RNA sequence: UUAUUAGUGUAAAUAUGCCCCAUGCAAUAUUUGGGACAUACUUAUGUUAAAA
Numbered sequence: 001u002u003a004u005u006a007g008u009g010u011a012a013a014u015a016u017g018c019c020c021c022a023u024g025c026a027a028u029a030u031u032u033g034g035g036a037c038a039u040a041c042u043u044a045u046g047u048u049a050a051a052a
Stems, first nucleotide, its partner, number of pairs: 006048007014040003019035003022031001
Dot-bracket structure: .....(((((((.(((..((((........).)))..))).)))))))....
Annotation: Shown here is a 52-nucleotide RNA from Balaenoptera musculus, a member of the family "mir-1302 microRNA precursor family". The organism belongs to Balaenoptera, within Eukaryota. Rfam 15.1 lists 16,160 matches to the family in 135 species. A reference for the family is Morin et al. (2008), "Application of massively parallel sequencing to microRNA profiling and discovery in human embryonic stem cells", Genome Res. Its family is annotated with miRNA-mediated post-transcriptional gene silencing and RISC complex in the Gene Ontology.